[Rfam]
The record is a 343-nucleotide RNA from Aspergillus candidus, which matches "A. fumigatus sRNA Afu_309" in Rfam. Rfam classes the family as a small RNA. Lineage of the source: Eukaryota > Ascomycota > saccharomyceta > Eurotiales > Aspergillus subgen. Circumdati. It scores 246 bits against the family's covariance model.
RNA sequence: UUCUUCAGAACAUACCACGGAUCUGUGUCCAGCGAUCCUGAUCACGGGCGCCGUUCUCUUCGCAAGAGGAGACGACUGUCUGUGUUUCGGUUGAUUACUGGACAGUUCGACGACCAAAGGAGCCAUGUUUUACGAAUGCAUGGUUUGCUAUUUUCCGGUCGACAGAUCUCAGAUUAAUUGCUGGCGCUGGGGGGUUCACGCCGGUCUUGAGCUCCCUUUCCUUCGGGAUUGGUGAGCUCGGCUGGUGCCUCUGGUUUGCUGGCGGCGUCAUAUUCCUACUCCCUUUGCCGAUUUUGGCCGUUGGCUGAUGAGGUUAGGGAAUAACCAUGACUGGCCAACAUAC
Number, nucleotide and partner (000 for none) at each position: 001u000002u000003c000004u000005u000006c000007a000008g000009a000010a000011c000012a000013u000014a000015c000016c000017a000018c000019g169020g168021a167022u166023c165024u164025g163026u162027g103028u102029c101030c100031a099032g098033c000034g096035a095036u094037c093038c090039u089040g088041a087042u000043c084044a083045c000046g080047g079048g000049c000050g076051c000052c074053g073054u072055u000056c071057u070058c069059u068060u067061c066062g000063c000064a000065a000066g061067a060068g059069g058070a057071g056072a054073c053074g052075a000076c050077u000078g000079u047080c046081u000082g000083u044084g043085u000086u000087u041088c040089g039090g038091u000092u000093g037094a036095u035096u034097a000098c032099u031100g030101g029102a028103c027104a000105g000106u000107u000108c000109g000110a000111c161112g160113a159114c158115c157116a000117a000118a000119g149120g148121a000122g144123c143124c142125a000126u000127g000128u000129u000130u000131u000132a000133c000134g000135a000136a000137u000138g000139c000140a000141u000142g124143g123144u122145u000146u000147g000148c120149u119150a000151u000152u000153u000154u000155c000156c000157g115158g114159u113160c112161g111162a026163c025164a024165g023166a022167u021168c020169u019170c000171a000172g000173a000174u000175u000176a000177a000178u000179u000180g259181c258182u000183g000184g000185c000186g255187c254188u253189g252190g251191g250192g000193g000194g000195u000196u000197c000198a000199c000200g000201c000202c000203g243204g242205u241206c240207u000208u000209g239210a238211g237212c236213u235214c234215c232216c231217u000218u000219u000220c000221c000222u000223u000224c000225g000226g000227g000228a000229u000230u000231g216232g215233u000234g214235a213236g212237c211238u210239c209240g206241g205242c204243u203244g000245g000246u000247g000248c000249c000250u191251c190252u189253g188254g187255u186256u000257u000258g181259c180260u000261g000262g000263c000264g336265g335266c334267g331268u330269c329270a328271u327272a000273u000274u000275c000276c000277u000278a000279c000280u320281c319282c318283c317284u316285u000286u000287g314288c313289c312290g000291a000292u000293u000294u000295u000296g306297g305298c304299c303300g000301u000302u000303g299304g298305c297306u296307g000308a000309u000310g000311a000312g289313g288314u287315u000316a284317g283318g282319g281320a280321a000322u000323a000324a000325c000326c000327a271328u270329g269330a268331c267332u000333g000334g266335c265336c264337a000338a000339c000340a000341u000342a000343c000